[Rfam]
mir-196 microRNA precursor family: a 79-nucleotide RNA from Anolis carolinensis.
Rfam's curators put it in the seed alignment.
For this family Rfam cites "New microRNAs from mouse and human" (Lagos-Quintana et al., RNA, 2003).
RNA sequence: UCGGUGAUUUAGGUAGUUUCAUGUUGUUGGGGCUAUGGCUCUCUCUUUCUCGACAGCACGAAACUGCCUUCAUUACUUC
Number, nucleotide and partner (000 for none) at each position: 001u000002c000003g077004g076005u075006g074007a073008u072009u000010u000011a069012g068013g067014u066015a065016g064017u063018u062019u061020c000021a000022u058023g057024u056025u055026g054027u053028u052029g051030g050031g049032g000033c000034u000035a000036u000037g000038g000039c000040u000041c000042u000043c000044u000045c000046u000047u000048u000049c031050u030051c029052g028053a027054c026055a025056g024057c023058a022059c000060g000061a019062a018063a017064c016065u015066g014067c013068c012069u011070u000071c000072a008073u007074u006075a005076c004077u003078u000079c000